[Rfam]
RNA sequence: CAAUAGGUCAACUAGGGUUCCGGCCCGCUGCUCCACCGAGCGCGGGUGACUGGUCCGAGAGUUGACGACCUUUUUCCAAGGUUACACGGCGGGACAAAAGCCCGGGAGGA
Numbered sequence: 001c002a003a004u005a006g007g008u009c010a011a012c013u014a015g016g017g018u019u020c021c022g023g024c025c026c027g028c029u030g031c032u033c034c035a036c037c038g039a040g041c042g043c044g045g046g047u048g049a050c051u052g053g054u055c056c057g058a059g060a061g062u063u064g065a066c067g068a069c070c071u072u073u074u075u076c077c078a079a080g081g082u083u084a085c086a087c088g089g090c091g092g093g094a095c096a097a098a099a100g101c102c103c104g105g106g107a108g109g110a
Stems, first nucleotide, its partner, number of pairs: 007066006015056002020053002022050001023047006067083006085105001087108001091103003
About this RNA: The family of this 110-nucleotide RNA sequence from Marinobacter daqiaonensis is "Guanidine-I riboswitch aptamer".